[Rfam]
RNA sequence: CUCGCGGGUGGCAGCGACUCUCAGAAAACUUGGAGCGCCUCCCCUUA
Numbered sequence: 001c002u003c004g005c006g007g008g009u010g011g012c013a014g015c016g017a018c019u020c021u022c023a024g025a026a027a028a029c030u031u032g033g034a035g036c037g038c039c040u041c042c043c044c045u046u047a
Stems, first nucleotide, its partner, number of pairs: 006043003010039002019035001021033004